About this RNA: This 47-nucleotide RNA from Halomonas alimentaria belongs to the Rfam family "Guanidine-II riboswitch aptamer (mini-ykkC)". Rfam's curators write: Simpler in structure and has fewer highly conserved nucleotide positions than the ykkC-yxkD leader. Despite this each of its two stem-loop structures directly bind free guanidine. Therefore, mini-ykkC RNA motif represents a distinct class of guanidine-sensing RNAs. The match comes from Rfam's covariance-model search (34 bits). Its family is annotated with regulation of gene expression in the Gene Ontology.

RNA sequence: GCACCGGGACGACCCGGCUUGCCUUCCACGCUGCGGGGACGGCCUCG
Dot-bracket structure: (..(((((....))))))...............(((((....)))))